[Rfam]
RNA sequence: UGCAACGUUUUCCAAAGUAGUGAACGUAAUUUAUCGUGAGUCAAUAGAUAUUAUGCUCAUUACUUUGGAAAUGUUGUA
Numbered sequence: 001u002g003c004a005a006c007g008u009u010u011u012c013c014a015a016a017g018u019a020g021u022g023a024a025c026g027u028a029a030u031u032u033a034u035c036g037u038g039a040g041u042c043a044a045u046a047g048a049u050a051u052u053a054u055g056c057u058c059a060u061u062a063c064u065u066u067g068g069a070a071a072u073g074u075u076g077u078a
Stems, first nucleotide, its partner, number of pairs: 002077005008071002011069013025055005032050004038042001
Shown here is a 78-nucleotide RNA from Leptidea sinapis, a member of the family "mir-2763 microRNA precursor family".
The organism belongs to Leptidea, within Eukaryota.
The family has 3 seed sequences and 59 matches in Rfam 15.1.
Rfam links the family to the GO terms miRNA-mediated post-transcriptional gene silencing and RISC complex.